[Rfam]
RNA sequence: CCAUUUCUCUGGUCUACGUGCUAAUGAAUUUCUGUCAAAUCUACGAAUUAUUUAUUAUGGCAGUACCUGCUACAUCAUUUAUAUGGAAUUACAAGCAAUUUUUAUUUAUCUCAUUAUGGUGAUAUU
Numbered sequence: 001c002c003a004u005u006u007c008u009c010u011g012g013u014c015u016a017c018g019u020g021c022u023a024a025u026g027a028a029u030u031u032c033u034g035u036c037a038a039a040u041c042u043a044c045g046a047a048u049u050a051u052u053u054a055u056u057a058u059g060g061c062a063g064u065a066c067c068u069g070c071u072a073c074a075u076c077a078u079u080u081a082u083a084u085g086g087a088a089u090u091a092c093a094a095g096c097a098a099u100u101u102u103u104a105u106u107u108a109u110c111u112c113a114u115u116a117u118g119g120u121g122a123u124a125u126u
Stems, first nucleotide, its partner, number of pairs: 004124001006122002008119002012115001015113001018110001023106003027101002030098002
MIR480 microRNA precursor family: a 126-nucleotide sequence from Neotoma lepida. On this family, see Lu et al., Plant Cell 2005: "Novel and mechanical stress-responsive MicroRNAs in Populus trichocarpa that are absent from Arabidopsis". Its family is annotated with miRNA-mediated post-transcriptional gene silencing and RISC complex in the Gene Ontology. Rfam 15.1 lists 3,070 matches to the family in 171 species. A search with the family's covariance model found it, with a score of 35 bits.